[Rfam]
The record is a 107-nucleotide RNA from Moheibacter sediminis, which matches "Bacteroidales small SRP" in Rfam. A search with the family's covariance model found it, with a score of 104 bits. Clan: SRP clan. Lineage of the source: Bacteria > Pseudomonadati > Bacteroidota > Weeksellaceae > Moheibacter. By type it is a non-coding RNA gene. The family's consensus secondary structure is taken from published work.
RNA sequence: UGCACCGAGGCAAGUCCUACACAACCAGCUCCUGGUCAAUCCCCCAGGGUGGGAACACAGCAAGGGUAUCCGGUUGUAGCGGUGUGAUGUAGUCAGCUUGCCUUUUU
Numbered sequence: 001u002g003c004a005c006c007g008a009g010g011c012a013a014g015u016c017c018u019a020c021a022c023a024a025c026c027a028g029c030u031c032c033u034g035g036u037c038a039a040u041c042c043c044c045c046a047g048g049g050u051g052g053g054a055a056c057a058c059a060g061c062a063a064g065g066g067u068a069u070c071c072g073g074u075u076g077u078a079g080c081g082g083u084g085u086g087a088u089g090u091a092g093u094c095a096g097c098u099u100g101c102c103u104u105u106u107u
Stems, first nucleotide, its partner, number of pairs: 008103008017092005022086002024083002